[Rfam]
Shown here is an 89-nucleotide RNA sequence from Haemophilus influenzae, a member of the family "TPP riboswitch aptamer (THI element)". Its family is annotated with thiamine pyrophosphate binding in the Gene Ontology. Lineage of the source: Bacteria > Pseudomonadati > Pseudomonadota > Pasteurellales > Haemophilus influenzae. The base pairs follow the family's consensus structure, which is taken from published work. It scores 60 bits against the family's covariance model. About the family: Vitamin B(1) in its active form thiamin pyrophosphate (TPP) is an essential coenzyme that is synthesised by coupling of pyrimidine and thiazole moieties in bacteria.

RNA sequence: GACUUUUAGUCGGGGUGCCGAAAGGCUGAGAUGAUACCCGUGAACCUGAAACAGUUAGCACUGACGUAGGAAACUAAUAUGCCACAUAU
Numbered sequence: 001g002a003c004u005u006u007u008a009g010u011c012g013g014g015g016u017g018c019c020g021a022a023a024g025g026c027u028g029a030g031a032u033g034a035u036a037c038c039c040g041u042g043a044a045c046c047u048g049a050a051a052c053a054g055u056u057a058g059c060a061c062u063g064a065c066g067u068a069g070g071a072a073a074c075u076a077a078u079a080u081g082c083c084a085c086a087u088a089u
Stems, first nucleotide, its partner, number of pairs: 006077005011040004016034001017026003045070004052063003
Dot-bracket structure: .....(((((((((.((((....))).......)..))))....((((...(((......)))...))))..)))))............